Nuclear RNase P: a 422-nucleotide sequence from Cylindrodendrum hubeiense.
From the family's description: Ribonuclease P (RNase P) is a ubiquitous endoribonuclease, found in archaea, bacteria and eukarya as well as chloroplasts and mitochondria.
It scores 48 bits against the family's covariance model.
It is annotated as a ribozyme.
Lineage of the source: Eukaryota > Opisthokonta > sordariomyceta > Sordariomycetes > Cylindrodendrum.
A reference for the family is Frank and Pace (1998), "Ribonuclease P: unity and diversity in a tRNA processing ribozyme", Annu Rev Biochem.
Nucleotides: 422
Stems, first nucleotide, its partner, number of pairs: 001422004009414002013356007023097004036092006107405005116321004205218005221317005227311001242302003357393003361389003
Number, partner (000 for none) and nucleotide at each position: 001422g002421c003420c004419c005000u006000u007000u008000u009414c010413a011000a012000c013356g014355c015354u016353g017352c018351g019350u020000u021000u022000c023097c024096a025095u026094g027000c028000u029000a030000c031000a032000a033000a034000c035000a036092g037091a038090g039089a040088g041087a042000c043000g044000a045000g046000c047000u048000u049000g050000c051000g052000c053000u054000c055000g056000u057000c058000u059000c060000u061000c062000a063000a064000g065000a066000u067000c068000c069000u070000g071000c072000u073000c074000g075000u076000c077000a078000g079000g080000a081000u082000c083000g084000c085000c086000u087041u088040c089039u090038c091037u092036c093000g094026c095025a096024u097023g098000u099000g100000g101000g102000a103000a104000a105000u106000u107405c108404g109403g110402a111401g112000u113000a114000u115000g116321c117320u118319u119318c120000a121000a122000c123000g124000u125000c126000a127000c128000c129000u130000c131000c132000c133000g134000c135000c136000u137000c138000g139000c140000c141000a142000c143000g144000u145000g146000c147000g148000c149000a150000a151000g152000g153000g154000c155000c156000c157000g158000u159000c160000c161000c162000u163000a164000c165000g166000c167000g168000c169000u170000u171000g172000g173000c174000c175000u176000g177000g178000a179000c180000g181000g182000a183000u184000a185000g186000g187000u188000c189000u190000g191000c192000c193000a194000g195000c196000g197000a198000u199000g200000g201000c202000c203000u204000u205218g206217c207216g208215u209214c210000a211000c212000u213000c214209g215208a216207c217206g218205u219000u220000u221317g222316c223315a224314a225313a226000u227311g228000a229000c230000a231000u232000c233000a234000g235000a236000a237000a238000u239000c240000u241000c242302a243301g244300a245000g246000c247000c248000u249000g250000g251000g252000c253000c254000g255000c256000c257000u258000c259000g260000u261000g262000c263000a264000u265000a266000c267000c268000c269000g270000c271000a272000a273000g274000g275000g276000g277000a278000a279000g280000a281000c282000g283000g284000g285000u286000g287000c288000g289000c290000g291000u292000c293000c294000c295000u296000g297000g298000u299000c300244u301243c302242u303000a304000u305000g306000g307000g308000a309000a310000g311227u312000c313225u314224u315223u316222g317221c318119g319118g320117a321116g322000c323000u324000u325000g326000u327000u328000g329000g330000g331000a332000c333000u334000a335000c336000a337000a338000c339000u340000g341000a342000a343000g344000u345000g346000c347000g348000a349000u350019a351018c352017g353016c354015g355014g356013c357393g358392u359391c360000u361389u362388g363387u364000c365000c366000u367000c368000u369000u370000g371000g372000g373000g374000c375000u376000u377000g378000c379000c380000u381000c382000a383000a384000g385000a386000g387363g388362c389361a390000u391359g392358a393357u394000g395000a396000c397000u398000c399000a400000a401111u402110u403109c404108c405107g406000a407000u408000c409000a410000c411000u412000c413010u414009g415000u416000c417000a418000a419004g420003g421002g422001c